[Rfam]
RNA sequence: GAGGCUUCACAUCAGUACUUUAUAAAAAGGCUAAAUCUAAGUUGAUUAGCUUAUGCUUAUGUUAGUGAAGCCUAAAUAAAUUGUUCCCCUCGCUAUCCAGAGCGGCGUUCUGUGUUGCAUUUGGACGUCGGGGAACUACAUUC
Numbered sequence: 001g002a003g004g005c006u007u008c009a010c011a012u013c014a015g016u017a018c019u020u021u022a023u024a025a026a027a028a029g030g031c032u033a034a035a036u037c038u039a040a041g042u043u044g045a046u047u048a049g050c051u052u053a054u055g056c057u058u059a060u061g062u063u064a065g066u067g068a069a070g071c072c073u074a075a076a077u078a079a080a081u082u083g084u085u086c087c088c089c090u091c092g093c094u095a096u097c098c099a100g101a102g103c104g105g106c107g108u109u110c111u112g113u114g115u116u117g118c119a120u121u122u123g124g125a126c127g128u129c130g131g132g133g134a135a136c137u138a139c140a141u142u143c
Base pairs, nucleotide, nucleotide: 003072004071005070008067009066010065011062012061017058020055028052029051030050031049032048033047083136084135085134086133087132088131089130091127092126096125097124098123099122100121105115106114107113
Annotation:
This 143-nucleotide sequence from Populus tomentosa belongs to the Rfam family "Small nucleolar RNA snoR136". Pairs were carried over by alignment from the consensus structure, which was predicted with mfold. A reference for the family is Chen and Wu (2009), "Mining small RNA sequencing data: a new approach to identify small nucleolar RNAs in Arabidopsis", Nucleic Acids Res. A search with the family's covariance model found it, with a score of 71 bits. The family has 8 seed sequences and 452 matches in Rfam 15.1.